[Rfam]
Record summary:
The record is a 357-nucleotide RNA sequence from Pseudoalteromonas translucida, which matches "transfer-messenger RNA" in Rfam. It is one of the family's seed sequences. Taxonomically the source falls in Pseudoalteromonas translucida (Bacteria, Pseudomonadati, Pseudoalteromonadaceae, Pseudoalteromonas). A reference for the family is Mao et al. (2010), "Variations on the tmRNA gene", RNA Biol. Gene Ontology term of the family: RNA catabolic process. Clan: tRNA clan. Pairs were carried over by alignment from the consensus structure, which is taken from published work. The family's RNA type in Rfam is non-coding RNA gene.

RNA sequence: GGGGCUGAUUAGGAUUCGACGGAAUUCAAGAAGCCCAAGGUGCAUGUCGAGGUGCGGUUUGCCUCGUUAAACAGCCGCAACCUAAAGUAAUCGCAAACGACGAUAACUACUCUCUAGCGGCUUAGGCCAGCUAGCGCUCCUUCUAUGUAUUCUUGUGGACUAGAUUUUGGAGUGUCACCCUAACACCUGAUCGCGAUGGAAACCCUGGCCGGGGUUGAAGCGUUAAAACUAAGCGGCCUCGCCUUUAUUUACCGUGUUUGUCCGGGACUUAAAGGUUAAUUAAAUGACAAUACUAAGCAUGUAGUACCGACGGUCGAGGCUUUUCGGACGGGGGUUCAAAUCCCCCCAGCUCCACCA
Numbered sequence: 001g002g003g004g005c006u007g008a009u010u011a012g013g014a015u016u017c018g019a020c021g022g023a024a025u026u027c028a029a030g031a032a033g034c035c036c037a038a039g040g041u042g043c044a045u046g047u048c049g050a051g052g053u054g055c056g057g058u059u060u061g062c063c064u065c066g067u068u069a070a071a072c073a074g075c076c077g078c079a080a081c082c083u084a085a086a087g088u089a090a091u092c093g094c095a096a097a098c099g100a101c102g103a104u105a106a107c108u109a110c111u112c113u114c115u116a117g118c119g120g121c122u123u124a125g126g127c128c129a130g131c132u133a134g135c136g137c138u139c140c141u142u143c144u145a146u147g148u149a150u151u152c153u154u155g156u157g158g159a160c161u162a163g164a165u166u167u168u169g170g171a172g173u174g175u176c177a178c179c180c181u182a183a184c185a186c187c188u189g190a191u192c193g194c195g196a197u198g199g200a201a202a203c204c205c206u207g208g209c210c211g212g213g214g215u216u217g218a219a220g221c222g223u224u225a226a227a228a229c230u231a232a233g234c235g236g237c238c239u240c241g242c243c244u245u246u247a248u249u250u251a252c253c254g255u256g257u258u259u260g261u262c263c264g265g266g267a268c269u270u271a272a273a274g275g276u277u278a279a280u281u282a283a284a285u286g287a288c289a290a291u292a293c294u295a296a297g298c299a300u301g302u303a304g305u306a307c308c309g310a311c312g313g314u315c316g317a318g319g320c321u322u323u324u325c326g327g328a329c330g331g332g333g334g335u336u337c338a339a340a341u342c343c344c345c346c347c348a349g350c351u352c353c354a355c356c357a
Stems, first nucleotide, its partner, number of pairs: 001353007020326005027319001033314003039308003043301005048066005053079007114134005119128003135174006142164004153190003156185002193223003197219001207238005241276007250267001252265003258290005330346005